[Rfam]
RNA: CyVA-1 RNA
RNA sequence: GCACCGGCUGAGUGUUUUGUCGUUGUGGCUCAUAGUCGGAUAUCGAAGAAGAGCGACGUCAGAUAUCCGAACGGUGU
Numbered sequence: 001g002c003a004c005c006g007g008c009u010g011a012g013u014g015u016u017u018u019g020u021c022g023u024u025g026u027g028g029c030u031c032a033u034a035g036u037c038g039g040a041u042a043u044c045g046a047a048g049a050a051g052a053g054c055g056a057c058g059u060c061a062g063a064u065a066u067c068c069g070a071a072c073g074g075u076g077u
Base pairs, nucleotide, nucleotide: 001077002076003075004074005073006072009032010031011030012029037069038068039067040066041065042064043063044062
Dot-bracket structure: ((((((..((((................))))....((((((((.................))))))))..))))))